Shown here is a 71-nucleotide RNA from Mus musculus, a member of the family "mir-344 microRNA precursor family".
Nucleotides: 071
Stems, first nucleotide, its partner, number of pairs: 007065001011061004017056003021052004027041005
Number, partner (000 for none) and nucleotide at each position: 001000u002000g003000u004000u005000c006000a007065a008000g009000c010000a011061g012060g013059c014058u015000g016000c017056u018055g019054g020000c021052u022051a023050u024049a025000u026000u027041c028040c029039a030038g031037a032000a033000c034000u035000c036000a037031u038030c039029u040028g041027g042000u043000c044000c045000u046000g047000g048000a049024u050023a051022u052021a053000a054019c055018c056017a057000a058014a059013g060012u061011c062000u063000u064000a065007u066000u067000g068000u069000a070000u071000g
A search with the family's covariance model found it, with a score of 65 bits.